[Rfam]
RNA sequence: GGCCUAAAGCAUCCGUAGCUUGUUUUAUGAGUCUUUCGUUAAAUCUGACGGCUUAACCGUUAGGCUGCGUAAGAUACCGUAAAACUAGGAGGCGGGAGAGGCUGAUGGUACUCCAAGGGUAGGGGUAAAAUCCACUGAUCCAUGGAAGACCACCAAUGGCGAAGGCGGUCAGCCAGAACGCGCUCGACGGUGAGGGAUGAAAGCUGGGGGAGCGAACCGGAUUAGAUACCCGGGUAGUCCCAGCUGUAAACGAUGCGAGCUAGGUGAUGGAGUGAUUAUGUAUUACUUCAGUGCCACAGGGAAGCCGUUAAGCUCGCCGCCUGGGGAGUACGAUCGCAAGAUUGAAACUUAAAGGAAU
Dot-bracket structure: (((.....(.((((.(.(((.(((((((..(((((.(((.....(((((((.....)))))))...))).))))..).)))))))...((((((.....(((((((((...((((.((...(((......)))......)).))))...)).......((....)).)))))))....))).)))...))))..))))....((((((...((...((((.........))))...))))))))..........((((((..((((.(((((((((.....))))))))).))))...((....)).....)))))))))).(((......((((....))))....)))........
Shown here is a 358-nucleotide part of an RNA from uncultured marine crenarchaeote AD1000-23-H12, a member of the family "Archaeal small subunit ribosomal RNA".
The sequence is in the family's curated seed alignment.
Rfam links the family to the GO terms ribosome and structural constituent of ribosome.